[Rfam]
RNA sequence: GAAUCCUGAGAGGACUCAUUCCUAGUACGAGAGGACCGGAAUGACAUAACCUCUGGUGUACCAGUUGUUCCGCCAGGAGCACCGCUGGGUAGCUAUGUUGUGAGUUGAUAAAUGCUGAAAGCAUCUAAGCAUGAAGCACACCUCAAAAUUAGGGUUCAUUUCGCUUUACGCGAACGCAACUCCUGGGAGAAUACCAGGUUGAUAGGCUGCAGGUGUAAGUGUAGUAAUACAUUCAGCCGAGCAGUACUAAUGUUAGCGA
Numbered sequence: 001g002a003a004u005c006c007u008g009a010g011a012g013g014a015c016u017c018a019u020u021c022c023u024a025g026u027a028c029g030a031g032a033g034g035a036c037c038g039g040a041a042u043g044a045c046a047u048a049a050c051c052u053c054u055g056g057u058g059u060a061c062c063a064g065u066u067g068u069u070c071c072g073c074c075a076g077g078a079g080c081a082c083c084g085c086u087g088g089g090u091a092g093c094u095a096u097g098u099u100g101u102g103a104g105u106u107g108a109u110a111a112a113u114g115c116u117g118a119a120a121g122c123a124u125c126u127a128a129g130c131a132u133g134a135a136g137c138a139c140a141c142c143u144c145a146a147a148a149u150u151a152g153g154g155u156u157c158a159u160u161u162c163g164c165u166u167u168a169c170g171c172g173a174a175c176g177c178a179a180c181u182c183c184u185g186g187g188a189g190a191a192u193a194c195c196a197g198g199u200u201g202a203u204a205g206g207c208u209g210c211a212g213g214u215g216u217a218a219g220u221g222u223a224g225u226a227a228u229a230c231a232u233u234c235a236g237c238c239g240a241g242c243a244g245u246a247c248u249a250a251u252g253u254u255a256g257c258g259a
Stems, first nucleotide, its partner, number of pairs: 001157007010144004016044007045102006054095003061088005066081006106138002112132005161173003175256001178254003182198005203249003206245005212238002219232005
The record is a 259-nucleotide part of an RNA from uncultured candidate division WWE3 bacterium EJ0ADIGA11YD11, which matches "Bacterial large subunit ribosomal RNA" in Rfam. Gene Ontology terms of the family: ribosome and structural constituent of ribosome. Pairs were carried over by alignment from the consensus structure, which is taken from published work.